RNA: Small nucleolar RNA SNORD53/SNORD92
Organism: Ciconia maguari
RNA sequence: AUGCAGUGAUGACCUCUUAAAUGGUGCUUGCAACUCACUGAUUGUUGAAUGAAGAUGUGAAUUUCCUUGGCUGUGUCUGAGCAU
Number, nucleotide and partner (000 for none) at each position: 001a084002u083003g082004c081005a000006g000007u000008g000009a000010u000011g000012a000013c000014c000015u000016c000017u000018u000019a000020a000021a000022u000023g000024g000025u000026g000027c000028u000029u000030g000031c000032a000033a000034c000035u000036c000037a000038c000039u000040g000041a000042u000043u000044g000045u000046u000047g000048a000049a000050u000051g000052a000053a000054g000055a000056u000057g000058u000059g000060a000061a000062u000063u000064u000065c000066c000067u000068u000069g000070g000071c000072u000073g000074u000075g000076u000077c000078u000079g000080a000081g004082c003083a002084u001